[Rfam]
RNA sequence: UCUCCCGCUUCACCUCCCUGAGCGGGUGCCUUACUGCAUAGAAGGCAUUUUCAACCCCCGGCAUUUCUCCCCUUUGGCCGGGGGUUUUUAUU
Numbered sequence: 001u002c003u004c005c006c007g008c009u010u011c012a013c014c015u016c017c018c019u020g021a022g023c024g025g026g027u028g029c030c031u032u033a034c035u036g037c038a039u040a041g042a043a044g045g046c047a048u049u050u051u052c053a054a055c056c057c058c059c060g061g062c063a064u065u066u067c068u069c070c071c072c073u074u075u076g077g078c079c080g081g082g083g084g085u086u087u088u089u090a091u092u
Stems, first nucleotide, its partner, number of pairs: 004026006028046005055084008
RNA: Burkholderia RNA 7 (anti-hemB)
Organism: Pseudothauera nasutitermitis